[Rfam]
Nuclear RNase P: a 383-nucleotide sequence from Neurospora crassa. It scores 40 bits against the family's covariance model. Taxonomically the source falls in Neurospora crassa (Eukaryota, Fungi, Ascomycota, Sordariomycetes).
RNA sequence: UCCUCUUCAAUGCUGCGUUUCUAUGCACCAACGGAGAGUUCUGCCUCGGCAGUCCUUUCAUCAUGGCAUAUGAGAAAUUCGGAGAAAUCGCUUCACCUUCAGCCACCCCUCUGAUCGCGUCAGGGUCGGCUCACUCCGGUGGCCUGGCUUUGUCAAGAUUGAGGAGCUGCUGCCGGCAACGGUCUCACGCGAUACUGCGUGGGUAAUUGGCAUCAGAAAAGCAGGCGGCUAUCCUAAGCGGACAAGCUGACGGUGUAGUCGCCCUCUGGGAGAGCCAUUACGAAGCUUGUGGGUAGAAUCACUUCAGUGCAAUACGCAGCGUGCGGUGUCUAUCUUCUUCUGGGCAGACCUGUACAAUCCGAUUCCGAUUACUCUGUUGAGGA
Numbered sequence: 001u002c003c004u005c006u007u008c009a010a011u012g013c014u015g016c017g018u019u020u021c022u023a024u025g026c027a028c029c030a031a032c033g034g035a036g037a038g039u040u041c042u043g044c045c046u047c048g049g050c051a052g053u054c055c056u057u058u059c060a061u062c063a064u065g066g067c068a069u070a071u072g073a074g075a076a077a078u079u080c081g082g083a084g085a086a087a088u089c090g091c092u093u094c095a096c097c098u099u100c101a102g103c104c105a106c107c108c109c110u111c112u113g114a115u116c117g118c119g120u121c122a123g124g125g126u127c128g129g130c131u132c133a134c135u136c137c138g139g140u141g142g143c144c145u146g147g148c149u150u151u152g153u154c155a156a157g158a159u160u161g162a163g164g165a166g167c168u169g170c171u172g173c174c175g176g177c178a179a180c181g182g183u184c185u186c187a188c189g190c191g192a193u194a195c196u197g198c199g200u201g202g203g204u205a206a207u208u209g210g211c212a213u214c215a216g217a218a219a220a221g222c223a224g225g226c227g228g229c230u231a232u233c234c235u236a237a238g239c240g241g242a243c244a245a246g247c248u249g250a251c252g253g254u255g256u257a258g259u260c261g262c263c264c265u266c267u268g269g270g271a272g273a274g275c276c277a278u279u280a281c282g283a284a285g286c287u288u289g290u291g292g293g294u295a296g297a298a299u300c301a302c303u304u305c306a307g308u309g310c311a312a313u314a315c316g317c318a319g320c321g322u323g324c325g326g327u328g329u330c331u332a333u334c335u336u337c338u339u340c341u342g343g344g345c346a347g348a349c350c351u352g353u354a355c356a357a358u359c360c361g362a363u364u365c366c367g368a369u370u371a372c373u374c375u376g377u378u379g380a381g382g383a
Base pairs, nucleotide, nucleotide: 001383002382003381004380008376009375012320013319014318015317016316017315018314022070023069024068025067034059035058036057037056038055080367081366082365083364084363090286091285092284093283172183173182174181175180185202186201187200188199189198190197203281204280205279206278209276210275211274223265224264225263321355322354323353324352325351326350